Background: Shown here is a 108-nucleotide sequence from Asticcacaulis endophyticus, a member of the family "SAM-I/IV (S-adenosyl methionine) riboswitch aptamer". The base pairs follow the family's consensus structure, which is taken from published work. The source organism's lineage runs through Bacteria, Pseudomonadati, Pseudomonadota, Alphaproteobacteria and Asticcacaulis. On this family, see Weinberg et al., RNA 2008: "The aptamer core of SAM-IV riboswitches mimics the ligand-binding site of SAM-I riboswitches".
RNA sequence: UGCCUGCAUCAAGAGUUGGGCCGACGCCUGACACCAACCUGCUCAUCCGGCAAGGUGGUGCCCUCGACCUGGGGGGAUGUGGCCUGACCGGCAAUUAACGGAGUCACA
Numbered sequence: 001u002g003c004c005u006g007c008a009u010c011a012a013g014a015g016u017u018g019g020g021c022c023g024a025c026g027c028c029u030g031a032c033a034c035c036a037a038c039c040u041g042c043u044c045a046u047c048c049g050g051c052a053a054g055g056u057g058g059u060g061c062c063c064u065c066g067a068c069c070u071g072g073g074g075g076g077a078u079g080u081g082g083c084c085u086g087a088c089c090g091g092c093a094a095u096u097a098a099c100g101g102a103g104u105c106a107c108a
Stems, first nucleotide, its partner, number of pairs: 006080005015032001017031001018029004033059003038055003041051003045104002048101001082092003